[Rfam]
RNA sequence: UUUAUGGCUGAUGCAGCAUCAUCAAGAUUCUCACUUCCAAAAGACCUAUGGCAUGGUUGGCACAGCACUUAGAUUGCAUCACAGUCCCACCCACCUGCGUUUGCAUGUGAAUCUUGAUGAUGCUACAUCCGCAAAUAA
Numbered sequence: 001u002u003u004a005u006g007g008c009u010g011a012u013g014c015a016g017c018a019u020c021a022u023c024a025a026g027a028u029u030c031u032c033a034c035u036u037c038c039a040a041a042a043g044a045c046c047u048a049u050g051g052c053a054u055g056g057u058u059g060g061c062a063c064a065g066c067a068c069u070u071a072g073a074u075u076g077c078a079u080c081a082c083a084g085u086c087c088c089a090c091c092c093a094c095c096u097g098c099g100u101u102u103g104c105a106u107g108u109g110a111a112u113c114u115u116g117a118u119g120a121u122g123c124u125a126c127a128u129c130c131g132c133a134a135a136u137a138a
Base pairs, nucleotide, nucleotide: 010129011128012127013126015124016123017122018121019120020119021118022117023116024115025114026113027112028111029110030109032107033106
mir-172 microRNA precursor family: a 138-nucleotide sequence from Phaseolus vulgaris. Rfam 15.1 lists 2,076 matches to the family in 219 species. mir-172 has been experimentally verified in Arabidopsis thaliana. This family is thought to target mRNAs coding for APETALA2-like transcription factors. Taxonomically the source falls in Phaseolus (Eukaryota, Embryophyta, rosids, Phaseoleae). A search with the family's covariance model found it, with a score of 72 bits.